This 227-nucleotide RNA from Anabaena sp. 90 belongs to the Rfam family "HNH endonuclease-associated RNA and ORF (HEARO) RNA". The family's RNA type in Rfam is non-coding RNA gene.
RNA sequence: GUCAGUAACCCAGCCCUAAAGGGACUGGGCUUGCAAGAGUAAUCAAGCAAGCCGUACUGACCAGACCACCCUGAGUUUACUCUCAUGGUAGCCGUUAUUUGAGUCACGACACCCUGGAAUGCGUAGCUAGUUCCCUGCUCUGUCGCUGGCAAUUAAACAGUUUUAAGGUCACUGAAACAGUGUUGCCAGCCUAACAAGCUCUUAUAACAGGUCGAAGCUAACAUUAC
Numbered sequence: 001g002u003c004a005g006u007a008a009c010c011c012a013g014c015c016c017u018a019a020a021g022g023g024a025c026u027g028g029g030c031u032u033g034c035a036a037g038a039g040u041a042a043u044c045a046a047g048c049a050a051g052c053c054g055u056a057c058u059g060a061c062c063a064g065a066c067c068a069c070c071c072u073g074a075g076u077u078u079a080c081u082c083u084c085a086u087g088g089u090a091g092c093c094g095u096u097a098u099u100u101g102a103g104u105c106a107c108g109a110c111a112c113c114c115u116g117g118a119a120u121g122c123g124u125a126g127c128u129a130g131u132u133c134c135c136u137g138c139u140c141u142g143u144c145g146c147u148g149g150c151a152a153u154u155a156a157a158c159a160g161u162u163u164u165a166a167g168g169u170c171a172c173u174g175a176a177a178c179a180g181u182g183u184u185g186c187c188a189g190c191c192u193a194a195c196a197a198g199c200u201c202u203u204a205u206a207a208c209a210g211g212u213c214g215a216a217g218c219u220a221a222c223a224u225u226a227c
Stems, first nucleotide, its partner, number of pairs: 001061007010029002012026002015022002030051004064213004070087001094208005101201004109143002113137001116134005124220005145190009157181002160178006167172001

Lineage of the source: Bacteria > Cyanobacteriota > Nostocales > Nostocaceae > Anabaena. The match comes from Rfam's covariance-model search (144 bits). Pairs were carried over by alignment from the consensus structure, which is taken from published work.